[Rfam]
RNA: MIR2619 microRNA precursor family
Organism: Medicago truncatula
RNA sequence: AAACAGCCCCCUAUGUAUUGGAUCUUUGACAGUUUUGGCCCCCAAAGCCACUUUUGACUUAGUCUUCGCUGACGCGGCACCCGCAAGCGAAGACUUAGUCAAAAGUGGCCUUGGGGGCCAAAACUGCCAAAGAUCCAAUACAUAGGGGCUGUUU
Numbered sequence: 001a002a003a004c005a006g007c008c009c010c011c012u013a014u015g016u017a018u019u020g021g022a023u024c025u026u027u028g029a030c031a032g033u034u035u036u037g038g039c040c041c042c043c044a045a046a047g048c049c050a051c052u053u054u055u056g057a058c059u060u061a062g063u064c065u066u067c068g069c070u071g072a073c074g075c076g077g078c079a080c081c082c083g084c085a086a087g088c089g090a091a092g093a094c095u096u097a098g099u100c101a102a103a104a105g106u107g108g109c110c111u112u113g114g115g116g117g118c119c120a121a122a123a124c125u126g127c128c129a130a131a132g133a134u135c136c137a138a139u140a141c142a143u144a145g146g147g148g149c150u151g152u153u154u
Stems, first nucleotide, its partner, number of pairs: 001154002004151005012144017030126016073083001